[Rfam]
RNA sequence: UGCAACACCCACUAAAGGAGUAGUUCCCCACUCCGGAGCUACUUUAUCAUAUUCUGAAAGC
Numbered sequence: 001u002g003c004a005a006c007a008c009c010c011a012c013u014a015a016a017g018g019a020g021u022a023g024u025u026c027c028c029c030a031c032u033c034c035g036g037a038g039c040u041a042c043u044u045u046a047u048c049a050u051a052u053u054c055u056g057a058a059a060g061c
Stems, first nucleotide, its partner, number of pairs: 017045011
Rfam assigns this 61-nucleotide RNA from Arachis hypogaea to the family "Plastid-psbN 5UTR RNA".
The family's consensus secondary structure was predicted with LocARNA.
Plastid psbN is a non-coding RNA (ncRNA) recognised in plastids. It was reported as a conserved 11 stem-loop in the prime untranslated region (5UTR) of psbN genes. It has been reported that the motif is retained in a subset of mature transcripts in barley, which can suggests a possible role in transcript alternative 5 prime processing.
On this family, see Richter et al., Plant Commun 2023: "Retrograde signaling in plants: A critical review focusing on the GUN pathway and beyond".
The match comes from Rfam's covariance-model search (73 bits).
By type it is a cis-regulatory element.
Rfam 15.1 lists 2,345 matches to the family in 397 species.